Plastid-rpl16 group II-D1 intron: a 46-nucleotide RNA sequence from Apium graveolens. Plastid-rpl16 is a non-coding RNA (ncRNA) recognised in plastids. Its family is annotated with Group II intron splicing in the Gene Ontology. The literature on the family includes a 2023 paper in Plant Commun by Richter et al., "Retrograde signaling in plants: A critical review focusing on the GUN pathway and beyond". The family's consensus secondary structure was predicted with LocARNA.
[Rfam]
RNA sequence: AAGAGCUUCGAGCCAAUAAAGACUAAGAAAAUUGGCUUCAGAUCGA
Numbered sequence: 001a002a003g004a005g006c007u008u009c010g011a012g013c014c015a016a017u018a019a020a021g022a023c024u025a026a027g028a029a030a031a032u033u034g035g036c037u038u039c040a041g042a043u044c045g046a
Stems, first nucleotide, its partner, number of pairs: 007041002010038008